[Rfam]
RNA: U11 spliceosomal RNA
Organism: Anabas testudineus
RNA sequence: AAAAAGGGCUUCUGCUGUGAGUGGCACAGGAGGGGUGGGGAACACCACCCUUCUUGCGGAAUCGCAAUCAAGAGAUUUCGGAAGCAUAAUUUUUAACACAGGGGCUGCUGAUGAUCGUUCAUCUCGGCGCCCCG
Numbered sequence: 001a002a003a004a005a006g007g008g009c010u011u012c013u014g015c016u017g018u019g020a021g022u023g024g025c026a027c028a029g030g031a032g033g034g035g036u037g038g039g040g041a042a043c044a045c046c047a048c049c050c051u052u053c054u055u056g057c058g059g060a061a062u063c064g065c066a067a068u069c070a071a072g073a074g075a076u077u078u079c080g081g082a083a084g085c086a087u088a089a090u091u092u093u094u095a096a097c098a099c100a101g102g103g104g105c106u107g108c109u110g111a112u113g114a115u116c117g118u119u120c121a122u123c124u125c126g127g128c129g130c131c132c133c134g
Stems, first nucleotide, its partner, number of pairs: 008085005013026005027056012057080007102132004107128005113123003